[Rfam]
RNA sequence: GUGCUUUACACAUGAACAAGUCCCUCGUAACCAAUAUCCAUCUAAAUCCCUUUUUCAGUGGCCAUUUUUGGUGGCUUAUUGAUUAUUAAGGGAUGGAAAAUGC
Numbered sequence: 001g002u003g004c005u006u007u008a009c010a011c012a013u014g015a016a017c018a019a020g021u022c023c024c025u026c027g028u029a030a031c032c033a034a035u036a037u038c039c040a041u042c043u044a045a046a047u048c049c050c051u052u053u054u055u056c057a058g059u060g061g062c063c064a065u066u067u068u069u070g071g072u073g074g075c076u077u078a079u080u081g082a083u084u085a086u087u088a089a090g091g092g093a094u095g096g097a098a099a100a101u102g103c
Base pairs, nucleotide, nucleotide: 037097038096039095040094041093042092055082056081057080058079059078060077061076

This 103-nucleotide RNA from Durio zibethinus belongs to the Rfam family "Small nucleolar RNA snoR99". Taxonomically the source falls in Durio (Eukaryota, Gunneridae, Pentapetalae, Malvales).